[Rfam]
RNA sequence: UAAAAAGAAUACGUUAUACCGUAGACAGCGGGGGCUUUAUAGCUUAAUAAUCCUGCCGAGGUGUUUAUGAUGAAGGUAGUUUCGCGUUAAAAGCAUUGCUAUCUGCCAUAUAUAAGCUCUCAUGUCUACAUGGGAGCUUUUUACAUUUCUUA
Numbered sequence: 001u002a003a004a005a006a007g008a009a010u011a012c013g014u015u016a017u018a019c020c021g022u023a024g025a026c027a028g029c030g031g032g033g034g035c036u037u038u039a040u041a042g043c044u045u046a047a048u049a050a051u052c053c054u055g056c057c058g059a060g061g062u063g064u065u066u067a068u069g070a071u072g073a074a075g076g077u078a079g080u081u082u083c084g085c086g087u088u089a090a091a092a093g094c095a096u097u098g099c100u101a102u103c104u105g106c107c108a109u110a111u112a113u114a115a116g117c118u119c120u121c122a123u124g125u126c127u128a129c130a131u132g133g134g135a136g137c138u139u140u141u142u143a144c145a146u147u148u149c150u151u152a
Stems, first nucleotide, its partner, number of pairs: 028056006034043003116137009
Dot-bracket structure: ...........................(((((((((....))).......))))))...........................................................(((((((((....)))))))))...............
This 152-nucleotide sequence from Oceanobacillus iheyensis belongs to the Rfam family "Ribosomal protein L10 leader". Lineage of the source: Bacteria > Caryophanales > Bacillaceae > Oceanobacillus > Oceanobacillus iheyensis. It is one of the family's seed sequences. Its family is annotated with regulation of gene expression in the Gene Ontology. This family is a putative r-protein leader autoregulatory structure found in B. subtilis and other low-GC Gram-positive bacteria. It is located in the 5' untranslated regions of mRNAs encoding ribosomal proteins L10 and L12 (rplJ-rplL). It is annotated as a cis-regulatory leader. On this family, see Zengel and Lindahl, Prog Nucleic Acid Res Mol Biol 1994: "Diverse mechanisms for regulating ribosomal protein synthesis in Escherichia coli".